[Rfam]
RNA sequence: AUCACCUGGGAAUCUGGUUGAAAUGCAGAUUCUGAUCUUGUAGGGCUGGGAUAGGGCCCGAGAUUCUGCAUUUCUAAUAAGCUCCCAGCUGAUGCUGA
Numbered sequence: 001a002u003c004a005c006c007u008g009g010g011a012a013u014c015u016g017g018u019u020g021a022a023a024u025g026c027a028g029a030u031u032c033u034g035a036u037c038u039u040g041u042a043g044g045g046c047u048g049g050g051a052u053a054g055g056g057c058c059c060g061a062g063a064u065u066c067u068g069c070a071u072u073u074c075u076a077a078u079a080a081g082c083u084c085c086c087a088g089c090u091g092a093u094g095c096u097g098a
Stems, first nucleotide, its partner, number of pairs: 003091002009085003014081002017078004021073003025069005031063003
Record summary:
This 98-nucleotide sequence from Callorhinus ursinus belongs to the Rfam family "mir-544 microRNA precursor family". It scores 69 bits against the family's covariance model. Its family is annotated with RISC complex and miRNA-mediated post-transcriptional gene silencing in the Gene Ontology. The source organism's lineage runs through Eukaryota, Eumetazoa, Euteleostomi, Boreoeutheria and Callorhinus. The family has 16 seed sequences and 10,750 matches in Rfam 15.1.